Rfam assigns this 59-nucleotide sequence from Streptomyces qinzhouensis to the family "msiK RNA".
NCBI's taxonomy places the organism under Bacteria, Bacillati, Kitasatosporales, Streptomycetaceae, Streptomyces.
A search with the family's covariance model found it, with a score of 51 bits.
The family's RNA type in Rfam is cis-regulatory element.

RNA sequence: CACCAAUUCCUUUUACUCGGAUCGUCCGGCACGUUCCUGCCGGUGGAGGGGAGACGCAC
Numbered sequence: 001c002a003c004c005a006a007u008u009c010c011u012u013u014u015a016c017u018c019g020g021a022u023c024g025u026c027c028g029g030c031a032c033g034u035u036c037c038u039g040c041c042g043g044u045g046g047a048g049g050g051g052a053g054a055c056g057c058a059c
Base pairs, nucleotide, nucleotide: 009050010049011048012047013046014045015044026043027042028041029040030039031038